The family of this 168-nucleotide sequence from Oscillospiraceae bacterium Marseille-Q3528 is "Clostridiales-1 RNA". Lineage of the source: Bacteria > Bacillati > Clostridia > Eubacteriales > Oscillospiraceae.
RNA sequence: UGAUGCCAGGGCCAAAAAGUCUAAGCCCACAUGAGCUUGCUCAUAAGUGGGUGAAAGGUCUUGAGGCCCGCCCCGAUAUGAGUAUAAAAGUAGGAUAGCAAUCCCACGAUAUGCGAAUAAUGGCAAGGAUUGUGGGAGUGCAUAGCACGGAACAAUCCGUAGCCAUCA
Dot-bracket structure: (((((.(..((((..((.((((...((((((((((....)))))..)))))....)))).))..))))....(((.(((..((((....((.((((....)))).))...))))..))).)))...(((((((....((((...))))...)))))))...).)))))
Numbered sequence: 001u002g003a004u005g006c007c008a009g010g011g012c013c014a015a016a017a018a019g020u021c022u023a024a025g026c027c028c029a030c031a032u033g034a035g036c037u038u039g040c041u042c043a044u045a046a047g048u049g050g051g052u053g054a055a056a057g058g059u060c061u062u063g064a065g066g067c068c069c070g071c072c073c074c075g076a077u078a079u080g081a082g083u084a085u086a087a088a089a090g091u092a093g094g095a096u097a098g099c100a101a102u103c104c105c106a107c108g109a110u111a112u113g114c115g116a117a118u119a120a121u122g123g124c125a126a127g128g129a130u131u132g133u134g135g136g137a138g139u140g141c142a143u144a145g146c147a148c149g150g151a152a153c154a155a156u157c158c159g160u161a162g163c164c165a166u167c168a
Stems, first nucleotide, its partner, number of pairs: 001168005007162001010068004016062002019059004026051005031044005073123003077119003082114004090107002093104004127158007138148004